[Rfam]
RNA sequence: AUGUCACAGAGAUGUGAUGGAAAGAUAGUUGAGAAUUUGCUUAAUCUAGCAGAAUGAUUUUUACAUCAUUCAAAUCAUUAUCUAAAUUCGAAAGGAGUGAAGUAACAAUGGCAGCUGAUAUCAUUUCAACAAUCGGUGAUUUAAUCAAAUGGAUUAUCGAUACAGUAAAAAAAUUCAAAAAAAAUUAAUUUUGAAUUAAGUCUAUUGUAACUUUGUUUUCUUCGUAUAAUUUAAUUGAUUAGUGAGUUUUUAAGCCAUCCCAACUUAAUUAUUUACUAAAUCUUUAUUAGCAAGUGAGAAGCAUUUGCUAAAGCUGUAGUUUCCUUGGACUCAGUGUUACGUAUUAUUCUUAGCUACCUUUAAUUAGGUAAUUAUUUCUAGCAUGUAAGCUAUCGUAAACAACAUUCAAUUUAUCAUUAAUAAAUAGAUAAAUUCACUAAAAUUUUUUCAUAAUUAAUAACAUCCCCAAAAAAUAGAUUGAAAAAAUAACUGUAAAAACAUUCCCUUAAUAAUAAGUUAUCAAGCCGUGAGUCCCUCCCAAGCUCACGGCUUU
Numbered sequence: 001a002u003g004u005c006a007c008a009g010a011g012a013u014g015u016g017a018u019g020g021a022a023a024g025a026u027a028g029u030u031g032a033g034a035a036u037u038u039g040c041u042u043a044a045u046c047u048a049g050c051a052g053a054a055u056g057a058u059u060u061u062u063a064c065a066u067c068a069u070u071c072a073a074a075u076c077a078u079u080a081u082c083u084a085a086a087u088u089c090g091a092a093a094g095g096a097g098u099g100a101a102g103u104a105a106c107a108a109u110g111g112c113a114g115c116u117g118a119u120a121u122c123a124u125u126u127c128a129a130c131a132a133u134c135g136g137u138g139a140u141u142u143a144a145u146c147a148a149a150u151g152g153a154u155u156a157u158c159g160a161u162a163c164a165g166u167a168a169a170a171a172a173a174u175u176c177a178a179a180a181a182a183a184a185u186u187a188a189u190u191u192u193g194a195a196u197u198a199a200g201u202c203u204a205u206u207g208u209a210a211c212u213u214u215g216u217u218u219u220c221u222u223c224g225u226a227u228a229a230u231u232u233a234a235u236u237g238a239u240u241a242g243u244g245a246g247u248u249u250u251u252a253a254g255c256c257a258u259c260c261c262a263a264c265u266u267a268a269u270u271a272u273u274u275a276c277u278a279a280a281u282c283u284u285u286a287u288u289a290g291c292a293a294g295u296g297a298g299a300a301g302c303a304u305u306u307g308c309u310a311a312a313g314c315u316g317u318a319g320u321u322u323c324c325u326u327g328g329a330c331u332c333a334g335u336g337u338u339a340c341g342u343a344u345u346a347u348u349c350u351u352a353g354c355u356a357c358c359u360u361u362a363a364u365u366a367g368g369u370a371a372u373u374a375u376u377u378c379u380a381g382c383a384u385g386u387a388a389g390c391u392a393u394c395g396u397a398a399a400c401a402a403c404a405u406u407c408a409a410u411u412u413a414u415c416a417u418u419a420a421u422a423a424a425u426a427g428a429u430a431a432a433u434u435c436a437c438u439a440a441a442a443u444u445u446u447u448u449c450a451u452a453a454u455u456a457a458u459a460a461c462a463u464c465c466c467c468a469a470a471a472a473a474u475a476g477a478u479u480g481a482a483a484a485a486a487u488a489a490c491u492g493u494a495a496a497a498a499c500a501u502u503c504c505c506u507u508a509a510u511a512a513u514a515a516g517u518u519a520u521c522a523a524g525c526c527g528u529g530a531g532u533c534c535c536u537c538c539c540a541a542g543c544u545c546a547c548g549g550c551u552u553u
Stems, first nucleotide, its partner, number of pairs: 003018006025493007034406002037402003041398003047085001094127007106117001133160007140152002166177001168175002193217001194214002197209002224340003229335003246272002250268005281312001283310001295303002313332001317328001351374003355370004379392004409433007443486008453478003457474002523551010